[Rfam]
Rfam assigns this 143-nucleotide sequence from Polaromonas sp. CG9_12 to the family "Bacterial antisense RNA HPnc0260". A reference for the family is Sharma et al. (2010), "The primary transcriptome of the major human pathogen Helicobacter pylori", Nature. A search with the family's covariance model found it, with a score of 67 bits. The source organism's lineage runs through Bacteria, Pseudomonadota, Betaproteobacteria, Comamonadaceae and Polaromonas.
RNA sequence: AUUCUAGGAAUGUCUUGAUCUACGCAAUUGUUUAUGAAUUGUCUUUUGCAAAUGUUUUUCUCGAUGGAGACAAAACAUACAAAGGAAAACCAAUUCAUAAAAAUUGGUAGGCGCGAUUGGACUCGAACCAACGACCCCCACCA
Numbered sequence: 001a002u003u004c005u006a007g008g009a010a011u012g013u014c015u016u017g018a019u020c021u022a023c024g025c026a027a028u029u030g031u032u033u034a035u036g037a038a039u040u041g042u043c044u045u046u047u048g049c050a051a052a053u054g055u056u057u058u059u060c061u062c063g064a065u066g067g068a069g070a071c072a073a074a075a076c077a078u079a080c081a082a083a084g085g086a087a088a089a090c091c092a093a094u095u096c097a098u099a100a101a102a103a104u105u106g107g108u109a110g111g112c113g114c115g116a117u118u119g120g121a122c123u124c125g126a127a128c129c130a131a132c133g134a135c136c137c138c139c140a141c142c143a
Stems, first nucleotide, its partner, number of pairs: 023036002026033001055069003105140003110135001114133002117131004